[Rfam]
Nucleotides: 072
Stems, first nucleotide, its partner, number of pairs: 001072004
Number, partner (000 for none) and nucleotide at each position: 001072a002071a003070c004069c005000u006000a007000u008000g009000a010000u011000g012000a013000a014000g015000a016000g017000a018000u019000u020000c021000u022000g023000c024000c025000a026000a027000a028000u029000g030000a031000a032000u033000c034000u035000a036000c037000u038000g039000a040000u041000u042000a043000u044000a045000c046000c047000c048000c049000u050000u051000c052000c053000g054000u055000u056000c057000c058000a059000u060000u061000a062000u063000u064000u065000c066000u067000g068000a069004g070003g071002u072001u
Small nucleolar RNA SNORD47: a 72-nucleotide sequence from Bagarius yarrelli. Pairs were carried over by alignment from the consensus structure, which was predicted with ILM. A reference for the family is Galardi et al. (2002), "Purified box C/D snoRNPs are able to reproduce site-specific 2'-O-methylation of target RNA in vitro", Mol Cell Biol. Rfam 15.1 lists 755 matches to the family in 638 species.